[Rfam]
The record is a 100-nucleotide RNA from Lathyrus oleraceus, which matches "MIR398 microRNA precursor family" in Rfam. Its family is annotated with miRNA-mediated post-transcriptional gene silencing and RISC complex in the Gene Ontology. The literature on the family includes a 2010 paper in Nucleic Acids Res by Zeng et al., "Conservation and divergence of microRNAs and their functions in Euphorbiaceous plants". It scores 78 bits against the family's covariance model. Rfam 15.1 lists 627 matches to the family in 211 species.
RNA sequence: UUCUAUCUCAGAGGAGUGAAACUGAGAACACAAGAUUGAUUGGUAUAUUUGUUUGUUGCUAGUUUAUUUUGUGUUCUCAGGUCACCCCUUUGAAUCAACC
Numbered sequence: 001u002u003c004u005a006u007c008u009c010a011g012a013g014g015a016g017u018g019a020a021a022c023u024g025a026g027a028a029c030a031c032a033a034g035a036u037u038g039a040u041u042g043g044u045a046u047a048u049u050u051g052u053u054u055g056u057u058g059c060u061a062g063u064u065u066a067u068u069u070u071g072u073g074u075u076c077u078c079a080g081g082u083c084a085c086c087c088c089u090u091u092g093a094a095u096c097a098a099c100c
Stems, first nucleotide, its partner, number of pairs: 008093001011090004016085004024078010